[Rfam]
RNA sequence: AUUCCCGUUGCGGGAGAGCGCAUGCACCGCAUGCCGCCGAAGGCGUAACCCACCCGGAAUCGCUCAGGCAACAAGGACCGCAACGCCAGG
Numbered sequence: 001a002u003u004c005c006c007g008u009u010g011c012g013g014g015a016g017a018g019c020g021c022a023u024g025c026a027c028c029g030c031a032u033g034c035c036g037c038c039g040a041a042g043g044c045g046u047a048a049c050c051c052a053c054c055c056g057g058a059a060u061c062g063c064u065c066a067g068g069c070a071a072c073a074a075g076g077a078c079c080g081c082a083a084c085g086c087c088a089g090g
Stems, first nucleotide, its partner, number of pairs: 006085008020034004036069003039065002043063003049057002
A member of the RNA family "Glycine riboswitch aptamer" from Thiobacillus denitrificans, 90 nucleotides long. The pairing is the family consensus, mapped onto this sequence. Taxonomically the source falls in Thiobacillus (Bacteria, Betaproteobacteria, Nitrosomonadales, Thiobacillaceae).